[Rfam]
RNA sequence: GAGCCAGGAGCGCUGUCGAUUACGGUGCGUUGGACGAUUGUUCCACCUGGCUU
Numbered sequence: 001g002a003g004c005c006a007g008g009a010g011c012g013c014u015g016u017c018g019a020u021u022a023c024g025g026u027g028c029g030u031u032g033g034a035c036g037a038u039u040g041u042u043c044c045a046c047c048u049g050g051c052u053u
Base pairs, nucleotide, nucleotide: 001053002052003051004050005049006048007047008046010028011027012026013025014024015023016022031045032044033043034041

This 53-nucleotide RNA from Ottowia testudinis belongs to the Rfam family "DUF3800-VI RNA". Rfam classes the family as a cis-regulatory element.